[Rfam]
Nucleotides: 081
Stems, first nucleotide, its partner, number of pairs: 006025006014074004
Number, partner (000 for none) and nucleotide at each position: 001000a002000g003000a004000c005000u006025u007024g008023g009022u010021c011020g012000u013000a014074g015073a016072g017071c018000c019000a020011c021010g022009a023008c024007c025006a026000a027000c028000u029000u030000a031000a032000g033000a034000u035000g036000a037000c038000g039000g040000g041000a042000a043000u044000c045000a046000a047000a048000c049000c050000c051000g052000u053000c054000a055000g056000u057000c058000u059000a060000a061000a062000c063000u064000a065000a066000a067000g068000a069000a070000a071017g072016c073015u074014c075000a076000c077000u078000g079000a080000g081000a
The family of this 81-nucleotide sequence is "6A RNA". It is one of the family's seed sequences. The base pairs follow the family's consensus structure, which is taken from published work. Rfam classes the family as a small RNA.